[Rfam]
RNA sequence: ACCACUUUUAAAGGCAGUCCGGAGAGGCUGACAAAGGGUGAUUGGAUUUUACGGUAUAACUGUACCUAAAUUCAGUACAUAACUACUCUUUGUCGCAAUUUUAGGCAGAGAGUAUUUUUUAU
Number, nucleotide and partner (000 for none) at each position: 001a000002c000003c038004a000005c036006u035007u034008u033009u000010a000011a000012a000013g000014g000015c030016a029017g028018u027019c026020c000021g000022g000023a000024g000025a000026g019027g018028c017029u016030g015031a000032c000033a008034a007035a006036g005037g000038g003039u000040g000041a000042u000043u000044g000045g072046a071047u070048u069049u068050u000051a000052c000053g066054g065055u064056a063057u062058a000059a000060c000061u000062g057063u056064a055065c054066c053067u000068a049069a048070a047071u046072u045073c000074a000075g000076u000077a000078c000079a000080u000081a117082a116083c000084u114085a113086c112087u111088c110089u109090u108091u107092g106093u105094c104095g000096c000097a000098a000099u000100u000101u000102u000103a000104g094105g093106c092107a091108g090109a089110g088111a087112g086113u085114a084115u000116u082117u081118u000119u000120u000121a000122u000

The record is a 122-nucleotide RNA from Listeria booriae, which matches "PyrR binding site" in Rfam. By type it is a cis-regulatory element. For this family Rfam cites "Molecular recognition of pyr mRNA by the Bacillus subtilis attenuation regulatory protein PyrR" (Bonner et al., Nucleic Acids Res, 2001). From the family's description: This family represents the PyrR binding site and terminator structure. This RNA structure is found upstream of a variety of genes involved in pyrimidine biosynthesis and transport. The alignment also includes a portion of the antiterminator structure.